[Rfam]
RNA: c-di-GMP-I riboswitch aptamer
Organism: Paenibacillus tyrphae
RNA sequence: GCUCGAUAAAGGCAAACCGGGCGAAAGCUCGCAGGCGCAAAGCUAUAGGGGAUAAGGCGCCGAGGUUGCGUGAUGCCAGCCAGUUUACCGAA
Numbered sequence: 001g002c003u004c005g006a007u008a009a010a011g012g013c014a015a016a017c018c019g020g021g022c023g024a025a026a027g028c029u030c031g032c033a034g035g036c037g038c039a040a041a042g043c044u045a046u047a048g049g050g051g052a053u054a055a056g057g058c059g060c061c062g063a064g065g066u067u068g069c070g071u072g073a074u075g076c077c078a079g080c081c082a083g084u085u086u087a088c089c090g091a092a
Base pairs, nucleotide, nucleotide: 012038013037018031019030020029021028022027041086042084043083044082048081049080050077051076057071058070059069060068